The family of this 76-nucleotide sequence from Myotis brandtii is "mir-9223 microRNA precursor family". Taxonomically the source falls in Myotis (Eukaryota, Metazoa, Sarcopterygii, Amniota).
[Rfam]
RNA sequence: AAUAGUUCUCGGAUGAUGCACCCUAGAAUCGGGCUCCCUCCUUUCUGGUUCCAGGGUGUGUCACCCAAGAACCAUU
Numbered sequence: 001a002a003u004a005g006u007u008c009u010c011g012g013a014u015g016a017u018g019c020a021c022c023c024u025a026g027a028a029u030c031g032g033g034c035u036c037c038c039u040c041c042u043u044u045c046u047g048g049u050u051c052c053a054g055g056g057u058g059u060g061u062c063a064c065c066c067a068a069g070a071a072c073c074a075u076u
Base pairs, nucleotide, nucleotide: 002075003074005072006071007070008069009068011066012065014063015062016061017060019058020057021056022055023054026051027050028049029048030047031046032045033044